[Rfam]
RNA sequence: AAUAAAAGGAGCAAUAACCUCUUUCUUGGUUUAUCAAGAAAGGUUAUUGCUCCUUUAUUUUCU
Numbered sequence: 001a002a003u004a005a006a007a008g009g010a011g012c013a014a015u016a017a018c019c020u021c022u023u024u025c026u027u028g029g030u031u032u033a034u035c036a037a038g039a040a041a042g043g044u045u046a047u048u049g050c051u052c053c054u055u056u057a058u059u060u061u062c063u
Stems, first nucleotide, its partner, number of pairs: 005056016024039005